[Rfam]
RNA sequence: AGCUAGAAACGGCAAGGUGCUUGAAAGAGUGCUACGCAAAACUACCGGUCUAAGGGCAAAGCCUACGACAGCGGAGUUACCUCG
Numbered sequence: 001a002g003c004u005a006g007a008a009a010c011g012g013c014a015a016g017g018u019g020c021u022u023g024a025a026a027g028a029g030u031g032c033u034a035c036g037c038a039a040a041a042c043u044a045c046c047g048g049u050c051u052a053a054g055g056g057c058a059a060a061g062c063c064u065a066c067g068a069c070a071g072c073g074g075a076g077u078u079a080c081c082u083c084g
Stems, first nucleotide, its partner, number of pairs: 012037002017032006040078004045074003048069003055063003
c-di-GMP-I riboswitch aptamer: an 84-nucleotide RNA sequence from Thalassotalea piscium. The organism belongs to Thalassotalea, within Bacteria. The base pairs follow the family's consensus structure, which is taken from published work.